Rfam assigns this 226-nucleotide sequence from Miscanthus lutarioriparius to the family "MIR6217 microRNA precursor family". The base pairs follow the family's consensus structure, which was predicted with RNAalifold.

[Rfam]
RNA sequence: UGGCUACAAAAUAACUUAUUCCGUAGCCACUUUGAGUUACGAUAAUUAUUAUAUUAAUUUACGAGAUUAUAGUAACUCCUUACUAAGUGGUUUACUAUAACGUUAUGGUAAAUAUCCCCAUGUGUUAUAGUAACCCAACUAUCGUAAAUAUAUAUUGACAUUAUCGUAAAUUAGUAUAUAAAAUUAUCGUAAAUGGAGGUGACUAUAUCAGUAUUUUUGAUGGUCA
Numbered sequence: 001u002g003g004c005u006a007c008a009a010a011a012u013a014a015c016u017u018a019u020u021c022c023g024u025a026g027c028c029a030c031u032u033u034g035a036g037u038u039a040c041g042a043u044a045a046u047u048a049u050u051a052u053a054u055u056a057a058u059u060u061a062c063g064a065g066a067u068u069a070u071a072g073u074a075a076c077u078c079c080u081u082a083c084u085a086a087g088u089g090g091u092u093u094a095c096u097a098u099a100a101c102g103u104u105a106u107g108g109u110a111a112a113u114a115u116c117c118c119c120a121u122g123u124g125u126u127a128u129a130g131u132a133a134c135c136c137a138a139c140u141a142u143c144g145u146a147a148a149u150a151u152a153u154a155u156u157g158a159c160a161u162u163a164u165c166g167u168a169a170a171u172u173a174g175u176a177u178a179u180a181a182a183a184u185u186a187u188c189g190u191a192a193a194u195g196g197a198g199g200u201g202a203c204u205a206u207a208u209c210a211g212u213a214u215u216u217u218u219g220a221u222g223g224u225c226a
Stems, first nucleotide, its partner, number of pairs: 001226006007219005014212003018208002023206004028201006037192011050178013065165003069161002074155001080147004087142006093132011107117002
Dot-bracket structure: (((((((((((..(((.((...((((.((((((...(((((((((((..(((((((((((((..(((.((...(.....((((...(((((((((((((((((...((.......))....)))))))))))....)))))).)))).......)....)).))))))))))))))))...)))))))))))...)))))).)))))).)))..))))).))))))